[Rfam]
RNA sequence: UAGUUGGUGAAAGUCCAACCUGAGUAAGUGCCAAGACGCUCAGUAGCUGACAGGCAACUGGUAGAGAAAUCCUAAGGUUGAAGCCCUGUGACAAAGUAAUUCAUUCGUGAGUGCGAGCAACCUAGCAGGUCGUAACAUGA
Numbered sequence: 001u002a003g004u005u006g007g008u009g010a011a012a013g014u015c016c017a018a019c020c021u022g023a024g025u026a027a028g029u030g031c032c033a034a035g036a037c038g039c040u041c042a043g044u045a046g047c048u049g050a051c052a053g054g055c056a057a058c059u060g061g062u063a064g065a066g067a068a069a070u071c072c073u074a075a076g077g078u079u080g081a082a083g084c085c086c087u088g089u090g091a092c093a094a095a096g097u098a099a100u101u102c103a104u105u106c107g108u109g110a111g112u113g114c115g116a117g118c119a120a121c122c123u124a125g126c127a128g129g130u131c132g133u134a135a136c137a138u139g140a
Stems, first nucleotide, its partner, number of pairs: 020043005050089005055080005064071002096114002099112004117133002

Group II catalytic intron D1-D4-4: a 140-nucleotide sequence from Bacillus aquiflavi.
The source organism's lineage runs through Bacteria, Bacillati, Bacilli, Bacillaceae and Bacillus.
The family has 90 seed sequences and 840 matches in Rfam 15.1.
Group II introns are found in rRNA, tRNA and mRNA of organelles in fungi, plants and protists, and also in mRNA in bacteria.